RNA sequence: ACAGUACAAACUGAGCAGACCAUUGGCAUAUGCCAAGGGAGUCGGGCCUUGAAGGCAGUGGAAUUCUUUACAUCCACGGGACAGUA
Numbered sequence: 001a002c003a004g005u006a007c008a009a010a011c012u013g014a015g016c017a018g019a020c021c022a023u024u025g026g027c028a029u030a031u032g033c034c035a036a037g038g039g040a041g042u043c044g045g046g047c048c049u050u051g052a053a054g055g056c057a058g059u060g061g062a063a064u065u066c067u068u069u070a071c072a073u074c075c076a077c078g079g080g081a082c083a084g085u086a
Stems, first nucleotide, its partner, number of pairs: 010085004016080001018043003023036005046056004058077005
Rfam assigns this 86-nucleotide RNA from Clostridium sp. CAG:590 to the family "NiCo (Nickel/Cobalt) riboswitch aptamer". The base pairs follow the family's consensus structure, which is taken from published work. On this family, see Furukawa et al., Mol Cell 2015: "Bacterial riboswitches cooperatively bind Ni(2+) or Co(2+) ions and control expression of heavy metal transporters". Rfam links the family to the GO terms cobalt ion binding and metal ion homeostasis.